The record is a 349-nucleotide sequence from Streptococcus mutans, which matches "transfer-messenger RNA" in Rfam. Pairs were carried over by alignment from the consensus structure, which is taken from published work. The source organism's lineage runs through Bacteria, Bacillota, Streptococcaceae, Streptococcus and Streptococcus mutans. The family is grouped with related families in Rfam's "tRNA clan". A reference for the family is Williams and Bartel (1996), "Phylogenetic analysis of tmRNA secondary structure", RNA.
RNA sequence: GGGGUCGUUACGGAUUCGACAGGCAUUAUGAGACCUAUUUUGCGACUCAUCUAGCGGAUGUAAAACGCCAGUUAAAUAUAACUGCAAAAAAUACAAAUUCUUACGCAGUAGCUGCCUAAAAACCAGCCUGUGUGAUCAAUAACAAAUUGCUUGUGUUUGUUGAUUGGUCUUAUUGUUAACAAGCUACGUUAGAACUGAGUCAGGCUGUUCUAAAAGAGUUCUACUGACUCGCAUCGUUAGAGUUUGAGUUAUGUAUUGUAACGGUGUUAAAUAAACACAUAACCUAUAGUUGUAGACAAAUGGGUUAGCAGAUGUUUGGACGUGGGUUCGACUCCCACCGGCUCCAUUA
Dot-bracket structure: (((((((............((((((((....(((((((((..(((((((((..[[[)))).....]]]......................................(...((((.........))))...)..((((((.(((((((.[[[[[[)))))))..)))))).........]]]]]]....(((((((...[[[[[...)))))))..........]]]]]..(((((((((.(((....[[[..[[))).))))))))).........]]..]]]....))))).....)))))))))....))))))))...(((((.......))))))))))))....